[Rfam]
RNA: Small nucleolar RNA SNORD42
RNA sequence: GAGCAAAUGAUGUAAAUGUUUCUGACUGAAUCAAUGAUGCAUUCAAAGGAACCACUGAUGCUA
Dot-bracket structure: .((((.....................................................)))).